[Rfam]
Annotation: The family of this 104-nucleotide RNA sequence from Centaurea solstitialis is "MIR390 microRNA precursor family". The family has 16 seed sequences and 649 matches in Rfam 15.1. Gene Ontology terms of the family: miRNA-mediated post-transcriptional gene silencing and RISC complex. It scores 84 bits against the family's covariance model. The literature on the family includes a 2005 paper in Genome Res by Adai et al., "Computational prediction of miRNAs in Arabidopsis thaliana".
RNA sequence: AGAAAAAAUCCAUGAAGCUCAGGAGGGAUAGCGUCAUUAAUAUAUCUUUUUAUCUGAUAGAAUGUUUAUGACGUUAUCCAUCCUGAGUUUCAUGGAUCUUUCAU
Number, nucleotide and partner (000 for none) at each position: 001a000002g000003a000004a000005a000006a000007a000008a000009u000010c095011c000012a000013u000014g000015a000016a089017g088018c087019u086020c085021a084022g083023g082024a081025g000026g079027g078028a077029u076030a075031g074032c073033g072034u071035c070036a000037u000038u000039a000040a000041u000042a000043u000044a000045u000046c000047u000048u000049u000050u000051u000052a000053u000054c000055u000056g000057a000058u000059a000060g000061a000062a000063u000064g000065u000066u000067u000068a000069u000070g035071a034072c033073g032074u031075u030076a029077u028078c027079c026080a000081u024082c023083c022084u021085g020086a019087g018088u017089u016090u000091c000092a000093u000094g000095g010096a000097u000098c000099u000100u000101u000102c000103a000104u000